[Rfam]
RNA sequence: AUGCAGUUUUUCCUGGAAAGCUAUGAGAAUAGCUCAAGCUGCUGGCACUAGUUUUACCGCCAGAAGUUGUUCUAAACUGCUAAAUGAGCCUAGCUCGAGAUGCGUGUGCUGGGUUGCUUCUCAAUGCGAUCUGGUUCCUUUUCUCCUCGGGACAAUU
Numbered sequence: 001a002u003g004c005a006g007u008u009u010u011u012c013c014u015g016g017a018a019a020g021c022u023a024u025g026a027g028a029a030u031a032g033c034u035c036a037a038g039c040u041g042c043u044g045g046c047a048c049u050a051g052u053u054u055u056a057c058c059g060c061c062a063g064a065a066g067u068u069g070u071u072c073u074a075a076a077c078u079g080c081u082a083a084a085u086g087a088g089c090c091u092a093g094c095u096c097g098a099g100a101u102g103c104g105u106g107u108g109c110u111g112g113g114u115u116g117c118u119u120c121u122c123a124a125u126g127c128g129a130u131c132u133g134g135u136u137c138c139u140u141u142u143c144u145c146c147u148c149g150g151g152a153c154a155a156u157u
Base pairs, nucleotide, nucleotide: 003080004079005078006077007076008075019034020033022031023030024029037068038067039066040065042063043062044061045060046059094151095150096149097148098147099146102143108135109134110133111132112131113130114129115128116127117126
Rfam assigns this 157-nucleotide RNA sequence from Caenorhabditis brenneri to the family "Caenorhabditis snoRNA ceN104". Rfam links the family to the GO terms RNA processing and nucleolus. It is annotated as an H/ACA-box small nucleolar RNA. The source organism's lineage runs through Eukaryota, Opisthokonta, Metazoa, Rhabditomorpha and Caenorhabditis. The family's consensus secondary structure was predicted with RNAalifold. On this family, see Jia et al., BMC Mol Biol 2007: "Systematic identification of non-coding RNA 2,2,7-trimethylguanosine cap structures in Caenorhabditis elegans".